[Rfam]
sraA: a 93-nucleotide sequence from Biostraticola tofi. A reference for the family is Argaman et al. (2001), "Novel small RNA-encoding genes in the intergenic regions of Escherichia coli", Curr Biol. Taxonomically the source falls in Biostraticola (Bacteria, Pseudomonadota, Gammaproteobacteria, Bruguierivoracaceae). By type it is a small RNA.
RNA sequence: AGGUAUUUGAGUAUAUUGGGGCGAAUCACUCACAUUCAACGGUAAGAGUAACCGAAAAAAAAAGGGGGAAAGAAUUCCCCCUGUACUUUUAUG
Numbered sequence: 001a002g003g004u005a006u007u008u009g010a011g012u013a014u015a016u017u018g019g020g021g022c023g024a025a026u027c028a029c030u031c032a033c034a035u036u037c038a039a040c041g042g043u044a045a046g047a048g049u050a051a052c053c054g055a056a057a058a059a060a061a062a063a064g065g066g067g068g069a070a071a072g073a074a075u076u077c078c079c080c081c082u083g084u085a086c087u088u089u090u091a092u093g
Stems, first nucleotide, its partner, number of pairs: 008038001010036003016032001018030002061084001063082008